[Rfam]
The record is a 46-nucleotide RNA sequence from Candidatus Magnetoglobus multicellularis, which matches "Acido-Lenti-1 RNA" in Rfam. The family's consensus secondary structure is taken from published work. It scores 59 bits against the family's covariance model. By type it is a small RNA.

RNA sequence: CCUGGGGUUGAAACCCCAGGCUAUUUCAUGUCGUCCCUGCGGGACU
Dot-bracket structure: ((((((((....))))))))............(((((...))))).